This 151-nucleotide RNA sequence from Eumeta japonica belongs to the Rfam family "mir-989 microRNA precursor family". The base pairs follow the family's consensus structure, which was predicted with RNAalifold. The organism belongs to Eumeta, within Eukaryota.

[Rfam]
RNA sequence: UCGUUGUGAAUCAGCCACUACAUCGCAGUCACGUGAUAUGUAUGAGCAGAGCAAAAAGUCAAGUCCAUAAUAUCCUGAAGGAUUUCGCUUUAAAUCCACCCAUACAAAAUUUAUAUUUCAUGUGAUGUGACGUAGUGGAAUAUUCCUGGCG
Numbered sequence: 001u002c003g004u005u006g007u008g009a010a011u012c013a014g015c016c017a018c019u020a021c022a023u024c025g026c027a028g029u030c031a032c033g034u035g036a037u038a039u040g041u042a043u044g045a046g047c048a049g050a051g052c053a054a055a056a057a058g059u060c061a062a063g064u065c066c067a068u069a070a071u072a073u074c075c076u077g078a079a080g081g082a083u084u085u086c087g088c089u090u091u092a093a094a095u096c097c098a099c100c101c102a103u104a105c106a107a108a109a110u111u112u113a114u115a116u117u118u119c120a121u122g123u124g125a126u127g128u129g130a131c132g133u134a135g136u137g138g139a140a141u142a143u144u145c146c147u148g149g150c151g
Base pairs, nucleotide, nucleotide: 003150004149005148006147008145009144010143015138016137017136018135019134020133021132023130024129025128026127029125030124031123032122034120035119036118